[Rfam]
This 130-nucleotide RNA from Xylaria multiplex belongs to the Rfam family "Group II catalytic intron D1-D4-7". For this family Rfam cites "The ins and outs of group II introns" (Bonen and Vogel, Trends Genet, 2001). Group II introns are found in rRNA, tRNA and mRNA of organelles in fungi, plants and protists, and also in mRNA in bacteria. A search with the family's covariance model found it, with a score of 60 bits. The pairing is the family consensus, mapped onto this sequence.
RNA sequence: CUAGGUAUUUUCUCUACCUAACACUACCUAGACAUGCAAAUUAGUAAUGAUUUGUGUGAAGCUUUAGGGACAAUGUAGCCUAUCUUAAAUGAUAAUGUAAGGAAAUAAAAGUGUUUAUUUAUUUCCUUUC
Number, nucleotide and partner (000 for none) at each position: 001c000002u020003a019004g018005g017006u016007a015008u000009u000010u000011u000012c000013u000014c000015u007016a006017c005018c004019u003020a002021a000022c000023a000024c000025u000026a000027c000028c067029u066030a065031g064032a063033c058034a057035u056036g055037c054038a053039a052040a051041u050042u049043a048044g000045u000046a000047a000048u043049g042050a041051u040052u039053u038054g037055u036056g035057u034058g033059a000060a000061g000062c000063u032064u031065u030066a029067g028068g000069g000070a000071c000072a000073a000074u000075g000076u000077a000078g000079c000080c000081u094082a093083u092084c091085u000086u000087a000088a000089a000090u000091g084092a083093u082094a081095a000096u121097g120098u000099a000100a000101g000102g000103a000104a000105a000106u000107a000108a000109a116110a115111g000112u000113g000114u000115u110116u109117a000118u000119u000120u097121a096122u000123u000124u000125c000126c000127u000128u000129u000130c000